Shown here is a 104-nucleotide sequence, a member of the family "DUF3577 RNA".
By type it is a cis-regulatory element.
The family's consensus secondary structure is taken from published work.
It is one of the family's seed sequences.
[Rfam]
RNA sequence: CGGAACUUAAUAAGGCAAUGCGUUGCCGAAAUCGUCUGUAAUCCGGACAGCCGCACACAUGCGGUGGCGACUUCGUCUUUCUGCUGCGUCCAUGCAGCCUCUCA
Numbered sequence: 001c002g003g004a005a006c007u008u009a010a011u012a013a014g015g016c017a018a019u020g021c022g023u024u025g026c027c028g029a030a031a032u033c034g035u036c037u038g039u040a041a042u043c044c045g046g047a048c049a050g051c052c053g054c055a056c057a058c059a060u061g062c063g064g065u066g067g068c069g070a071c072u073u074c075g076u077c078u079u080u081c082u083g084c085u086g087c088g089u090c091c092a093u094g095c096a097g098c099c100u101c102u103c104a
Stems, first nucleotide, its partner, number of pairs: 014027005032070005051064005083098005